[Rfam]
Nucleotides: 114
Base pairs, nucleotide, nucleotide: 001114002113003112004111005110006109007108008107013043016042017041018040022033023032024031030081044076045075046074047073049072050071051068052067053066054065087103088102089101090100091099
Number, partner (000 for none) and nucleotide at each position: 001114c002113u003112c004111u005110u006109a007108u008107c009000c010000c011000g012000a013043g014000c015000u016042g017041g018040u019000g020000g021000a022033g023032g024031g025000g026000u027000c028000a029000g030081g031024c032023c033022c034000u035000a036000u037000g038000a039000a040018a041017c042016c043013c044076g045075g046074c047073a048000a049072c050071c051068u052067g053066u054065a055000a056000u057000u058000u059000u060000u061000u062000u063000u064000u065054u066053a067052c068051a069000a070000a071050g072049g073047u074046g075045c076044c077000c078000a079000a080000c081030c082000u083000g084000a085000g086000a087103c088102a089101a090100g091099g092000u093000g094000u095000g096000a097000u098000u099091c100090c101089u102088u103087g104000a105000u106000u107008g108007a109006u110005a111004a112003g113002a114001g
About this RNA
SAM riboswitch aptamer (S box leader): a 114-nucleotide RNA from Psychrobacillus soli. NCBI's taxonomy places the organism under Bacteria, Bacillota, Bacilli, Bacillaceae, Psychrobacillus. A search with the family's covariance model found it, with a score of 71 bits. From the family's description: The SAM riboswitch is found upstream of a number of genes which code for proteins involved in methionine or cysteine biosynthesis in Gram-positive bacteria. The family's consensus secondary structure is taken from published work.